[Rfam]
RNA sequence: GGACGAUUAGCUCAGCUGGUAUGAGCAUCCGCUUGACGUGCGGGAGGUCACAGGUUCAAGUCCUGUAUCGUCCA
Numbered sequence: 001g002g003a004c005g006a007u008u009a010g011c012u013c014a015g016c017u018g019g020u021a022u023g024a025g026c027a028u029c030c031g032c033u034u035g036a037c038g039u040g041c042g043g044g045a046g047g048u049c050a051c052a053g054g055u056u057c058a059a060g061u062c063c064u065g066u067a068u069c070g071u072c073c074a
Stems, first nucleotide, its partner, number of pairs: 001073007010026004028044005050066005
Dot-bracket structure: (((((((..((((.........)))).(((((.......))))).....(((((.......)))))))))))).
A member of the RNA family "tRNA" from Firmicutes bacterium CAG:114, 74 nucleotides long.